Source information
This 72-nucleotide RNA sequence from Chironomus riparius belongs to the Rfam family "mir-305 microRNA precursor family". The organism belongs to Chironomus, within Eukaryota. The literature on the family includes a 2010 paper in BMC Genomics by Skalsky et al., "Identification of microRNAs expressed in two mosquito vectors, Aedes albopictus and Culex quinquefasciatus".
[Rfam]
RNA sequence: CAUGUCUAUUGUACUUCAUCAGGUGCUCUGGUUGAAUUAAUACCCGGCACAUGUUGGAGUGCACCACAUUUG
Numbered sequence: 001c002a003u004g005u006c007u008a009u010u011g012u013a014c015u016u017c018a019u020c021a022g023g024u025g026c027u028c029u030g031g032u033u034g035a036a037u038u039a040a041u042a043c044c045c046g047g048c049a050c051a052u053g054u055u056g057g058a059g060u061g062c063a064c065c066a067c068a069u070u071u072g
Stems, first nucleotide, its partner, number of pairs: 001072002004069001010063003014059005020053002023050005030044002